[Rfam]
RNA sequence: UACGAGGCAAGGCUUAAUGCGCGUAUAAGUCGGGAAUCGGCCCGAACGUCUCUACCCGGAAACCCUAAUUUCCGGACUACGCGGAAAUCGUCAAGACAC
Numbered sequence: 001u002a003c004g005a006g007g008c009a010a011g012g013c014u015u016a017a018u019g020c021g022c023g024u025a026u027a028a029g030u031c032g033g034g035a036a037u038c039g040g041c042c043c044g045a046a047c048g049u050c051u052c053u054a055c056c057c058g059g060a061a062a063c064c065c066u067a068a069u070u071u072c073c074g075g076a077c078u079a080c081g082c083g084g085a086a087a088u089c090g091u092c093a094a095g096a097c098a099c
Stems, first nucleotide, its partner, number of pairs: 018085001020083006029047001030045005056075007
This 99-nucleotide RNA from Cohnella luojiensis belongs to the Rfam family "Purine riboswitch aptamer". A search with the family's covariance model found it, with a score of 59 bits. Clan: Purine riboswitches. The base pairs follow the family's consensus structure, which is taken from published work. From the family's description: Riboswitches are metabolite binding domains within certain messenger RNAs that serve as precision sensors for their corresponding targets. Allosteric rearrangement of mRNA structure is mediated by ligand binding, and this results in modulation of gene expression. A class of riboswitches that selectively recognises guanine and becomes saturated at concentrations as low as 5 nM. In Bacillus subtilis, this mRNA motif is located on at least five separate transcriptional units that together encode 17 genes that are mostly involved in purine transport and purine nucleotide biosynthesis. It has also been shown that some members of this family are specific for adenine instead.